This 140-nucleotide RNA from Heterocephalus glaber belongs to the Rfam family "small Cajal body-specific RNA 17". The family has 6 seed sequences and 262 matches in Rfam 15.1. Rfam describes the family as follows. scaRNAs are a specific class of small nuclear RNAs which localise to the Cajal bodies and guide the modification of RNA polymerase II transcribed spliceosomal RNAs U1, U2, U4, U5 and U12. The complete human U12-22/U4-8 scaRNA is composed of two tandem C/D box domains (termed U12-22 and U4-8). The organism belongs to Heterocephalus, within Eukaryota. The base pairs follow the family's consensus structure, which is taken from published work. The literature on the family includes a 2004 paper in Curr Biol by Tycowski et al., "Guide RNAs with 5' Caps and Novel Box C/D snoRNA-like Domains for Modification of snRNAs in Metazoa".
RNA sequence: UCUCCAGGCUCCGUCCGCAGCCUGGGGCCCGCAGUGUUUCCCUCACGUGACCAGGCCCUGCGGUGGGCGGUGCCUCUCUCGCUGGAGCCUGAGAGGAUUAUGAAAACUGGGCAGGCGGAGCGCGGCCAGGGGACCUGAGG
Dot-bracket structure: (((.((((.(((.......(((.............................(((((.((...(.(((.(....).))).)...)).)))))................................)))...))).)))))))